Rfam assigns this 77-nucleotide RNA from Litoreibacter arenae to the family "Singlet oxygen resistance RNA X". SorX (RSs2461)like SorY is a singlet oxygen induced sRNA that counteracts oxidative stress by targeting mRNA for a transporter in Rhodobacter. Rfam links the family to the GO term response to photooxidative stress. Rfam classes the family as a small RNA. A reference for the family is Peng et al. (2016), "Regulation of a polyamine transporter by the conserved 3' UTR-derived sRNA SorX confers resistance to singlet oxygen and organic hydroperoxides in Rhodobacter sphaeroides", RNA Biol. The family has 8 seed sequences and 528 matches in Rfam 15.1.
[Rfam]
RNA sequence: CCCCUGAUCGCGGCGGGGUAAUGCUGCGGUAUUCUCCCUGUUGGACUUGGCCCGAGCUUUAUGCUCGGGUCUUUUUU
Numbered sequence: 001c002c003c004c005u006g007a008u009c010g011c012g013g014c015g016g017g018g019u020a021a022u023g024c025u026g027c028g029g030u031a032u033u034c035u036c037c038c039u040g041u042u043g044g045a046c047u048u049g050g051c052c053c054g055a056g057c058u059u060u061a062u063g064c065u066c067g068g069g070u071c072u073u074u075u076u077u
Base pairs, nucleotide, nucleotide: 008029009028010027011026012025013024014023049071050070052068053067054066055065056064057063